[Rfam]
RNA sequence: UUGGACAACGAAACAGCAUGUUUAACUUCGCUCAGCUACCAGGCCUACUACUAAACGCAUCUCACGUGCGCGGUAUGCCGGUGGGCGAAAUCCAGAGCUGAUUUCACGUCACACCUCAUAUAAAAAACCCGCGCCGAUGCGCGGGUUUUUUU
Numbered sequence: 001u002u003g004g005a006c007a008a009c010g011a012a013a014c015a016g017c018a019u020g021u022u023u024a025a026c027u028u029c030g031c032u033c034a035g036c037u038a039c040c041a042g043g044c045c046u047a048c049u050a051c052u053a054a055a056c057g058c059a060u061c062u063c064a065c066g067u068g069c070g071c072g073g074u075a076u077g078c079c080g081g082u083g084g085g086c087g088a089a090a091u092c093c094a095g096a097g098c099u100g101a102u103u104u105c106a107c108g109u110c111a112c113a114c115c116u117c118a119u120a121u122a123a124a125a126a127a128c129c130c131g132c133g134c135c136g137a138u139g140c141g142c143g144g145g146u147u148u149u150u151u152u
Stems, first nucleotide, its partner, number of pairs: 004110001006108001010104001012102001014100004028088007036080001049075004056070004124149011
RNA: Leucine operon leader
Organism: Dickeya dadantii